[Rfam]
RNA: Glycine riboswitch aptamer
RNA sequence: CGCCUGUUUGCGGGAGAGAGCAGCAUCGCUGCCGCCGAAGGGGAAGAGCCCGGAAAUCUCUCAGGCAAAUGAACCGUAUACAGGUU
Dot-bracket structure: .....((.(((((......((((.....)))).(((((..(((.....(...)....))))).))).......))))).)).....
Numbered sequence: 001c002g003c004c005u006g007u008u009u010g011c012g013g014g015a016g017a018g019a020g021c022a023g024c025a026u027c028g029c030u031g032c033c034g035c036c037g038a039a040g041g042g043g044a045a046g047a048g049c050c051c052g053g054a055a056a057u058c059u060c061u062c063a064g065g066c067a068a069a070u071g072a073a074c075c076g077u078a079u080a081c082a083g084g085u086u
Stems, first nucleotide, its partner, number of pairs: 006081002009078005020032004034066003037062002041060003049053001